[Rfam]
RNA sequence: GGCUGGUCCAAAGGUAGUGAGUUAUCUCACUUGAUUGUUCACAGUCGGUUACAGAUUGAACUCUUUCCUCCUCCUCACUACUGCACUUGACUAGCCUUUA
Dot-bracket structure: ((((((((.((..((((((((...........((..((.....................))..))........))))))...))..))))))))))....